Overview:
mir-275 microRNA precursor family: an 87-nucleotide RNA from Phyllotreta striolata. The base pairs follow the family's consensus structure, which was predicted with RNAalifold. Its family is annotated with miRNA-mediated post-transcriptional gene silencing and RISC complex in the Gene Ontology.

RNA sequence: UUCGAUAUUACUGCGAGUGCUACCUCGGUGCCUAGGCUGCGUUUUCGGAGAGUCAGGUACCUGAAGUAGCGCGCGUUGUUCUAUUCA
Numbered sequence: 001u002u003c004g005a006u007a008u009u010a011c012u013g014c015g016a017g018u019g020c021u022a023c024c025u026c027g028g029u030g031c032c033u034a035g036g037c038u039g040c041g042u043u044u045u046c047g048g049a050g051a052g053u054c055a056g057g058u059a060c061c062u063g064a065a066g067u068a069g070c071g072c073g074c075g076u077u078g079u080u081c082u083a084u085u086c087a
Stems, first nucleotide, its partner, number of pairs: 010079002014075001017072006030058003035054004